Source information: The family of this 86-nucleotide RNA sequence from a Syntrophomonadaceae bacterium is "pan motif". Pairs were carried over by alignment from the consensus structure, which is taken from published work. Taxonomically the source falls in Syntrophomonadaceae (Bacteria, Bacillati, Bacillota, Clostridia). It scores 62 bits against the family's covariance model. Rfam classes the family as a cis-regulatory element.
[Rfam]
RNA sequence: AGGGCAGCAUCCUGCUGGAGCUGCACCUAUUACGUAGUUACCCAAAAAUCAAAAGCCGCUUGGAUCCUAUGGACCGGGACGGAAAG
Numbered sequence: 001a002g003g004g005c006a007g008c009a010u011c012c013u014g015c016u017g018g019a020g021c022u023g024c025a026c027c028u029a030u031u032a033c034g035u036a037g038u039u040a041c042c043c044a045a046a047a048a049u050c051a052a053a054a055g056c057c058g059c060u061u062g063g064a065u066c067c068u069a070u071g072g073a074c075c076g077g078g079a080c081g082g083a084a085a086g
Base pairs, nucleotide, nucleotide: 001028002027003026004024005023006022007021008020010019011018056082057081058080059078060077061076062075063074065073066072067071